[Rfam]
RNA sequence: AGUAAUGUAAUUCAGAAUCCCCAUAUAAACUGAAGGAUUGGCUUCAGUGUUUCUACCGUGACACCUUAAUGUCUGGACUAUGCGGGAAAGCGACUUUUUA
Numbered sequence: 001a002g003u004a005a006u007g008u009a010a011u012u013c014a015g016a017a018u019c020c021c022c023a024u025a026u027a028a029a030c031u032g033a034a035g036g037a038u039u040g041g042c043u044u045c046a047g048u049g050u051u052u053c054u055a056c057c058g059u060g061a062c063a064c065c066u067u068a069a070u071g072u073c074u075g076g077a078c079u080a081u082g083c084g085g086g087a088a089a090g091c092g093a094c095u096u097u098u099u100a
Stems, first nucleotide, its partner, number of pairs: 018086003022082004029048007057076001060073004
RNA: Purine riboswitch aptamer